[Rfam]
RNA sequence: GGAUUGAUGAUGAUGACUUAAAAAAUAGAUCUCAUUGGAAUCUAAACAAAACGAGUGACCAAACCACUUCUGUAAAAUGAGGUCC
Numbered sequence: 001g002g003a004u005u006g007a008u009g010a011u012g013a014u015g016a017c018u019u020a021a022a023a024a025a026u027a028g029a030u031c032u033c034a035u036u037g038g039a040a041u042c043u044a045a046a047c048a049a050a051a052c053g054a055g056u057g058a059c060c061a062a063a064c065c066a067c068u069u070c071u072g073u074a075a076a077a078u079g080a081g082g083u084c085c
Stems, first nucleotide, its partner, number of pairs: 001085005029056001031055003035049003
RNA: Small nucleolar RNA SNORD116
Organism: Ictidomys tridecemlineatus